[Rfam]
RNA: mir-1902 microRNA precursor family
RNA sequence: AUUUCUUGGGAGUGUCUGCUGUAUAAUUGGAUUUAAUGAAAUGUUUAGAGGUGCAGUAGGCAUGACUUUGAGUAGAU
Numbered sequence: 001a002u003u004u005c006u007u008g009g010g011a012g013u014g015u016c017u018g019c020u021g022u023a024u025a026a027u028u029g030g031a032u033u034u035a036a037u038g039a040a041a042u043g044u045u046u047a048g049a050g051g052u053g054c055a056g057u058a059g060g061c062a063u064g065a066c067u068u069u070g071a072g073u074a075g076a077u
Stems, first nucleotide, its partner, number of pairs: 001077004006072002008068003012063013028047005